[Rfam]
RNA sequence: AAUCAUGAGAGUGAUCUGAUUAUGACAUCUGUCACCCCAUUGAUCGCCAGGGUUGAUUCGGCUGAUCUGGCUGGCUAGGCGGGUGUCCCCUUCCUCCCUCACUGCUCCAUGUGCAUCCCUUUUGAAGCUGCAUGCUUGACUGAAGAUGACCUUCCCUGAUAGAGACACACUACUCAUUGCUUAAAGGUAUACGGUAGCUGCGCUCCCCUGCUAGAACCUCCAAACAAGCUCAAGGUCCAUUUGUAGGAGAAUGUACAGUCAAGCUUCCAAGACUGUGGACACACCCAUAUGAGACACUGUAUGGGGCAGUGUCUGAAGGA
Numbered sequence: 001a002a003u004c005a006u007g008a009g010a011g012u013g014a015u016c017u018g019a020u021u022a023u024g025a026c027a028u029c030u031g032u033c034a035c036c037c038c039a040u041u042g043a044u045c046g047c048c049a050g051g052g053u054u055g056a057u058u059c060g061g062c063u064g065a066u067c068u069g070g071c072u073g074g075c076u077a078g079g080c081g082g083g084u085g086u087c088c089c090c091u092u093c094c095u096c097c098c099u100c101a102c103u104g105c106u107c108c109a110u111g112u113g114c115a116u117c118c119c120u121u122u123u124g125a126a127g128c129u130g131c132a133u134g135c136u137u138g139a140c141u142g143a144a145g146a147u148g149a150c151c152u153u154c155c156c157u158g159a160u161a162g163a164g165a166c167a168c169a170c171u172a173c174u175c176a177u178u179g180c181u182u183a184a185a186g187g188u189a190u191a192c193g194g195u196a197g198c199u200g201c202g203c204u205c206c207c208c209u210g211c212u213a214g215a216a217c218c219u220c221c222a223a224a225c226a227a228g229c230u231c232a233a234g235g236u237c238c239a240u241u242u243g244u245a246g247g248a249g250a251a252u253g254u255a256c257a258g259u260c261a262a263g264c265u266u267c268c269a270a271g272a273c274u275g276u277g278g279a280c281a282c283a284c285c286c287a288u289a290u291g292a293g294a295c296a297c298u299g300u301a302u303g304g305g306g307c308a309g310u311g312u313c314u315g316a317a318g319g320a
Stems, first nucleotide, its partner, number of pairs: 002106001006101004011096001013093002018090001024087010035074002037070003042067004046062003119164003122139004127135002141158002148154002197264003203258002209255003218249004224244005288320001292314009
Dot-bracket structure: .(...((((.(.((...(.....((((((((((.(((((..(((((((...........))).)))))))..))...))))))))))..).))..).))))....)............(((((((.((.....)))))).((.....((...))..))...)))................................(((...((....(((......((((..(((((...........))))).))))...))).))...))).......................(...(((((((((.....))))))))).....)
The family of this 320-nucleotide sequence from Coturnix japonica is "7SK RNA".
It is annotated as a non-coding RNA gene.
A reference for the family is Blencowe (2002), "Transcription: surprising role for an elusive small nuclear RNA", Curr Biol.
The organism belongs to Coturnix, within Eukaryota.